The family of this 69-nucleotide sequence from Phenylobacterium deserti is "terC RNA". Taxonomically the source falls in Phenylobacterium (Bacteria, Pseudomonadati, Alphaproteobacteria, Caulobacterales). A search with the family's covariance model found it, with a score of 62 bits.
[Rfam]
RNA sequence: GAGGCGGGCCGGGCCCCUCUGGCGAUCAGAUCCACGAACGGACACUGGUCGUGAUGUCGGACCGCAUCG
Numbered sequence: 001g002a003g004g005c006g007g008g009c010c011g012g013g014c015c016c017c018u019c020u021g022g023c024g025a026u027c028a029g030a031u032c033c034a035c036g037a038a039c040g041g042a043c044a045c046u047g048g049u050c051g052u053g054a055u056g057u058c059g060g061a062c063c064g065c066a067u068c069g
Stems, first nucleotide, its partner, number of pairs: 006063002009060004022052008